The family of this 127-nucleotide RNA from Dipodomys ordii is "Small nucleolar RNA SNORA20". Rfam 15.1 lists 437 matches to the family in 157 species. Pairs were carried over by alignment from the consensus structure, which was predicted with ILM. The family is grouped with related families in Rfam's "SNORA20 clan". Rfam classes the family as an H/ACA-box small nucleolar RNA. ACA20 is a member of the H/ACA class of snoRNA that guide the sites of modification of uridines to pseudouridines. A search with the family's covariance model found it, with a score of 100 bits.
[Rfam]
RNA sequence: UUUCCCACUUAUUUGCUGCUGUAAUCCUUUGGUGAUAUGAGCAGCUGUAAGCAUGGGAUAAAGUAAUAUUGAGACAUGGUAAAUUGAGGUGAAAUGCAUUUCAUCUUUUUGCGUGGUCUAGACAUUG
Numbered sequence: 001u002u003u004c005c006c007a008c009u010u011a012u013u014u015g016c017u018g019c020u021g022u023a024a025u026c027c028u029u030u031g032g033u034g035a036u037a038u039g040a041g042c043a044g045c046u047g048u049a050a051g052c053a054u055g056g057g058a059u060a061a062a063g064u065a066a067u068a069u070u071g072a073g074a075c076a077u078g079g080u081a082a083a084u085u086g087a088g089g090u091g092a093a094a095u096g097c098a099u100u101u102c103a104u105c106u107u108u109u110u111g112c113g114u115g116g117u118c119u120a121g122a123c124a125u126u127g
Stems, first nucleotide, its partner, number of pairs: 003058005015045006022037002025035002069121003073117001075115002079112003086107009
Dot-bracket structure: ..(((((.......((((((.((.((.......))))..))))))........)))))..........(((.(.((..(((....(((((((((....)))))))))..))).)).).)))......